[Rfam]
RNA sequence: UCCAUCGUGAGGUGGAAUCUGAAGGAAGCCGGAGGCAAAAUCCCGGACUGACGGACAGAAACUGUAUACAAGGCUGGUUCGGAACGGACGAGUUUGCAUAACAAAACGAAGUCCGAUACUGCCCGAAUUCUGAUCAGUAAAUACAGCAGUUACACGGGAGGAAAGUUAUAGCU
Numbered sequence: 001u002c003c004a005u006c007g008u009g010a011g012g013u014g015g016a017a018u019c020u021g022a023a024g025g026a027a028g029c030c031g032g033a034g035g036c037a038a039a040a041u042c043c044c045g046g047a048c049u050g051a052c053g054g055a056c057a058g059a060a061a062c063u064g065u066a067u068a069c070a071a072g073g074c075u076g077g078u079u080c081g082g083a084a085c086g087g088a089c090g091a092g093u094u095u096g097c098a099u100a101a102c103a104a105a106a107c108g109a110a111g112u113c114c115g116a117u118a119c120u121g122c123c124c125g126a127a128u129u130c131u132g133a134u135c136a137g138u139a140a141a142u143a144c145a146g147c148a149g150u151u152a153c154a155c156g157g158g159a160g161g162a163a164a165g166u167u168a169u170a171g172c173u
Stems, first nucleotide, its partner, number of pairs: 001016006028173001030171001032169001035166002041159005046151005062146006073138003077134001079133006086114004092107004
Group II catalytic intron D1-D4-3: a 173-nucleotide RNA sequence from Salimicrobium jeotgali. The source organism's lineage runs through Bacteria, Bacillati, Bacillota, Caryophanales and Salimicrobium.